Rfam assigns this 148-nucleotide RNA from Rosa chinensis to the family "mir-395 microRNA precursor family". From the family's description: mir-395 was identified in both Arabidopsis thaliana and Oryza sativa computationally and was later experimentally verified. mir-395 is thought to target mRNAs coding for ATP sulphurylases. The mature sequence is excised from the 3' arm of the hairpin. A search with the family's covariance model found it, with a score of 66 bits. The literature on the family includes a 2004 paper in Mol Cell by Jones-Rhoades and Bartel, "Computational Identification of Plant MicroRNAs and Their Targets, Including a Stress-Induced miRNA". The source organism's lineage runs through Eukaryota, Streptophytina, fabids, Rosales and Rosa.
RNA sequence: UUGUUACCUGGAGUUCCCCUGAAUACUUCAUUGGGGUAGUUAGUAUCAAGAGUCGAGACCCCUUUUAAUUAAAAAUUAAUUAAGGGUGAGUAGCUCAAGUACUUUGGUUUUAUCCCACUGAAGUGUUUGGGGGAACUCUGGGUGCCAU
Numbered sequence: 001u002u003g004u005u006a007c008c009u010g011g012a013g014u015u016c017c018c019c020u021g022a023a024u025a026c027u028u029c030a031u032u033g034g035g036g037u038a039g040u041u042a043g044u045a046u047c048a049a050g051a052g053u054c055g056a057g058a059c060c061c062c063u064u065u066u067a068a069u070u071a072a073a074a075a076u077u078a079a080u081u082a083a084g085g086g087u088g089a090g091u092a093g094c095u096c097a098a099g100u101a102c103u104u105u106g107g108u109u110u111u112a113u114c115c116c117a118c119u120g121a122a123g124u125g126u127u128u129g130g131g132g133g134a135a136c137u138c139u140g141g142g143u144g145c146c147a148u
Base pairs, nucleotide, nucleotide: 005144006143007142008141009140011138012137013136014135015134016133017132018131019130020129022128023127024125025124026123027122028121029120030119032117033116034115035114036113037112038111039110